[Rfam]
This 301-nucleotide RNA sequence from Ipomoea nil belongs to the Rfam family "Plant signal recognition particle RNA". The source organism's lineage runs through Eukaryota, Viridiplantae, Pentapetalae, lamiids and Ipomoea. The family has 63 seed sequences and 4,988 matches in Rfam 15.1.

RNA sequence: GCUGGGCUUGGUAGCGCGAGCCUGUAACCCAAGCGGGAGCAUUAAGAUGGUGGAAUAGUUUGGCUUGCCUUGAAGGUUGGGCUAGGGUUGCUAUCUACUGUCCUGCCCGUUCCAAGUGGUGAGUUGUACUGUGGAGUCUCUCCGAAAGCGGAGGCUUCACUGUCCUUAGAUCGGAGGGCACCACGUGAGGCUGGCUUCACAGAGCAGCGAUAACCUCCUCCUCACUGUGGUGGAAGGAUAACUGGCCGGUGCAACCUCAGUCCAUAAGCGCAUCCGUAUGACGUAUACUGGAGUCAUUUUC
Dot-bracket structure: ((((((((((......)))))))....(((....))))))...((((((((....((.(.((.(.((...((.(.((.(((((.((.(((.((....(((.((.(.((.(((((.((((((((..(.((.(((((((((((.(....).))))))))))).)).).......(((((......(((....(((......)))....)))....)))))..))))))))..)))))))....).)).)))))))).)).)))))......)).).)))).).)..).).))..)))))))).
Numbered sequence: 001g002c003u004g005g006g007c008u009u010g011g012u013a014g015c016g017c018g019a020g021c022c023u024g025u026a027a028c029c030c031a032a033g034c035g036g037g038a039g040c041a042u043u044a045a046g047a048u049g050g051u052g053g054a055a056u057a058g059u060u061u062g063g064c065u066u067g068c069c070u071u072g073a074a075g076g077u078u079g080g081g082c083u084a085g086g087g088u089u090g091c092u093a094u095c096u097a098c099u100g101u102c103c104u105g106c107c108c109g110u111u112c113c114a115a116g117u118g119g120u121g122a123g124u125u126g127u128a129c130u131g132u133g134g135a136g137u138c139u140c141u142c143c144g145a146a147a148g149c150g151g152a153g154g155c156u157u158c159a160c161u162g163u164c165c166u167u168a169g170a171u172c173g174g175a176g177g178g179c180a181c182c183a184c185g186u187g188a189g190g191c192u193g194g195c196u197u198c199a200c201a202g203a204g205c206a207g208c209g210a211u212a213a214c215c216u217c218c219u220c221c222u223c224a225c226u227g228u229g230g231u232g233g234a235a236g237g238a239u240a241a242c243u244g245g246c247c248g249g250u251g252c253a254a255c256c257u258c259a260g261u262c263c264a265u266a267a268g269c270g271c272a273u274c275c276g277u278a279u280g281a282c283g284u285a286u287a288c289u290g291g292a293g294u295c296a297u298u299u300u301c
Stems, first nucleotide, its partner, number of pairs: 001040003004023007028037003044300008056290002059287001061285001062282001064280001066278002071276002074273001076271002079263005085257002088254003092251002098249003102245002105242001107237002110235005116228008126165001128163002131160011143148001173218005184209003191202003